[Rfam]
RNA sequence: UGACAGUAGUGAUGAUGACGACUUGUCUUUUUCCUGAAACAUCAUGUGGGUUUUCAGUCACUACCUCAUCUGAACAGUCA
Numbered sequence: 001u002g003a004c005a006g007u008a009g010u011g012a013u014g015a016u017g018a019c020g021a022c023u024u025g026u027c028u029u030u031u032u033c034c035u036g037a038a039a040c041a042u043c044a045u046g047u048g049g050g051u052u053u054u055c056a057g058u059c060a061c062u063a064c065c066u067c068a069u070c071u072g073a074a075c076a077g078u079c080a
Base pairs, nucleotide, nucleotide: 002079003078004077006075007074
Rfam assigns this 80-nucleotide sequence from Collichthys lucidus to the family "Small nucleolar RNA SNORD11B".
The base pairs follow the family's consensus structure, which was predicted with WAR.
The source organism's lineage runs through Eukaryota, Craniata, Neopterygii, Euacanthomorphacea and Collichthys.
Its Rfam clan is "SNORD11 clan".
For this family Rfam cites "snoSeeker: an advanced computational package for screening of guide and orphan snoRNA genes in the human genome" (Yang et al., Nucleic Acids Res, 2006).
Rfam 15.1 lists 733 matches to the family in 632 species.